[Rfam]
RNA sequence: GAGUGUGUCUGAAUGGCAAGUCUAACCUGAGUAUCAGGGAAGGCGCAGGGAAACCGACAUGGUCGCAGGGCUCUGCCCCAGGACCGCCGUGUUCAAGCGCGGGGAGUCAUUCGGACACGACCCGAAACCGGACGAUCUAUGCGUGGGCAAGGUGAAGCGUGCCGAAAGGCACGUGGAAGCCUGCUAGAGUUGGUGUCCUACAAUACCCUCUCGUGACCUACGUAUAGGGGUGAAAGGCCCAUCGAGUCCGGCAACAGCUGGUU
Numbered sequence: 001g002a003g004u005g006u007g008u009c010u011g012a013a014u015g016g017c018a019a020g021u022c023u024a025a026c027c028u029g030a031g032u033a034u035c036a037g038g039g040a041a042g043g044c045g046c047a048g049g050g051a052a053a054c055c056g057a058c059a060u061g062g063u064c065g066c067a068g069g070g071c072u073c074u075g076c077c078c079c080a081g082g083a084c085c086g087c088c089g090u091g092u093u094c095a096a097g098c099g100c101g102g103g104g105a106g107u108c109a110u111u112c113g114g115a116c117a118c119g120a121c122c123c124g125a126a127a128c129c130g131g132a133c134g135a136u137c138u139a140u141g142c143g144u145g146g147g148c149a150a151g152g153u154g155a156a157g158c159g160u161g162c163c164g165a166a167a168g169g170c171a172c173g174u175g176g177a178a179g180c181c182u183g184c185u186a187g188a189g190u191u192g193g194u195g196u197c198c199u200a201c202a203a204u205a206c207c208c209u210c211u212c213g214u215g216a217c218c219u220a221c222g223u224a225u226a227g228g229g230g231u232g233a234a235a236g237g238c239c240c241a242u243c244g245a246g247u248c249c250g251g252c253a254a255c256a257g258c259u260g261g262u263u
Stems, first nucleotide, its partner, number of pairs: 005118013020044004026038004048055002061085004068078004088101004121261002124258001128251006137227011148215001150182004157174007187212003192208002195206002229239003